[Rfam]
Rfam assigns this 100-nucleotide RNA sequence from Limosilactobacillus ingluviei to the family "23S methyl RNA motif". It scores 68 bits against the family's covariance model. The literature on the family includes a 2007 paper in Nucleic Acids Res by Weinberg et al., "Identification of 22 candidate structured RNAs in bacteria using the CMfinder comparative genomics pipeline". The family's consensus secondary structure is taken from published work. The family's RNA type in Rfam is cis-regulatory element.

RNA sequence: CAUUUGGUAAGUGACAUCGAAGCUUUCGUUGGUAUUUAUCAAAGAGCACUUCACUAAAGCAGCGUUUCGCCGUGCCCACACCGAGACCCUGCUUUUUUUG
Number, nucleotide and partner (000 for none) at each position: 001c000002a000003u043004u042005u041006g040007g039008u038009a037010a036011g035012u034013g033014a000015c031016a030017u000018c028019g027020a000021a000022g000023c000024u000025u000026u000027c019028g018029u000030u016031g015032g000033u013034a012035u011036u010037u009038a008039u007040c006041a005042a004043a003044g000045a000046g000047c000048a000049c000050u000051u000052c000053a000054c000055u000056a095057a094058a093059g092060c091061a090062g089063c000064g087065u086066u085067u084068c083069g082070c000071c000072g081073u080074g079075c000076c000077c000078a000079c074080a073081c072082c069083g068084a067085g066086a065087c064088c000089c062090u061091g060092c059093u058094u057095u056096u000097u000098u000099u000100g000